A member of the RNA family "MIR1862 microRNA precursor family" from Oryza meyeriana, 90 nucleotides long. A search with the family's covariance model found it, with a score of 105 bits. The family's consensus secondary structure was predicted with RNAalifold. The organism belongs to Oryza meyeriana, within Eukaryota. Rfam links the family to the GO terms RISC complex and miRNA-mediated post-transcriptional gene silencing.
RNA sequence: UACUCCCUCCGUCUCAAAAUAAGACAACAUAGUACUAGGAUGUGUCACAUCCUAGUACUAUGUUGUCUUAUUUUGAGACGGAGGGAGUAU
Numbered sequence: 001u002a003c004u005c006c007c008u009c010c011g012u013c014u015c016a017a018a019a020u021a022a023g024a025c026a027a028c029a030u031a032g033u034a035c036u037a038g039g040a041u042g043u044g045u046c047a048c049a050u051c052c053u054a055g056u057a058c059u060a061u062g063u064u065g066u067c068u069u070a071u072u073u074u075g076a077g078a079c080g081g082a083g084g085g086a087g088u089a090u
Stems, first nucleotide, its partner, number of pairs: 001089035038052003